[Rfam]
RNA: mir-320 microRNA precursor family
RNA sequence: AAAAAAAAAGGCCUUCUCUUCCUGGUUCUUCCCAGAGUUGGGAAAAGCUGGGUUGAGAGGGCAAAAACAAACAAAC
Number, nucleotide and partner (000 for none) at each position: 001a000002a000003a000004a000005a000006a000007a000008a000009a000010g000011g000012c000013c000014u059015u058016c057017u056018c055019u000020u000021c052022c051023u050024g049025g048026u000027u000028c000029u044030u043031c042032c041033c040034a039035g000036a000037g000038u000039u034040g033041g032042g031043a030044a029045a000046a000047g000048c025049u024050g023051g022052g021053u000054u000055g018056a017057g016058a015059g014060g000061g000062c000063a000064a000065a000066a000067a000068c000069a000070a000071a000072c000073a000074a000075a000076c000